Source information: mir-1302 microRNA precursor family: a 52-nucleotide RNA sequence from Enhydra lutris. The match comes from Rfam's covariance-model search (64 bits). Rfam 15.1 lists 16,160 matches to the family in 135 species.
RNA sequence: UUUUUAGUGGAAAUAUAUCCCAUGCAAUAUUUGGGACAUAUUUACUCUAAAA
Numbered sequence: 001u002u003u004u005u006a007g008u009g010g011a012a013a014u015a016u017a018u019c020c021c022a023u024g025c026a027a028u029a030u031u032u033g034g035g036a037c038a039u040a041u042u043u044a045c046u047c048u049a050a051a052a
Base pairs, nucleotide, nucleotide: 006048007047009045011043012042014040015039016038018036019035020034021033022031